[Rfam]
RNA sequence: CUUCCCAAGGGGCGCUGCAGCUGGCGCCUGCCUUCAGACAGGCAGGCCUCCGGUCAGGCUUGGGGACUCCAACCGCGCUCACUUGUU
Numbered sequence: 001c002u003u004c005c006c007a008a009g010g011g012g013c014g015c016u017g018c019a020g021c022u023g024g025c026g027c028c029u030g031c032c033u034u035c036a037g038a039c040a041g042g043c044a045g046g047c048c049u050c051c052g053g054u055c056a057g058g059c060u061u062g063g064g065g066a067c068u069c070c071a072a073c074c075g076c077g078c079u080c081a082c083u084u085g086u087u
Stems, first nucleotide, its partner, number of pairs: 002066007021053004026048001

This 87-nucleotide RNA sequence from Rhodoferax sp. TH121 belongs to the Rfam family "SAH (S-adenosyl-L-homocysteine) riboswitch aptamer". A search with the family's covariance model found it, with a score of 53 bits. Taxonomically the source falls in Rhodoferax (Bacteria, Pseudomonadota, Betaproteobacteria, Burkholderiales).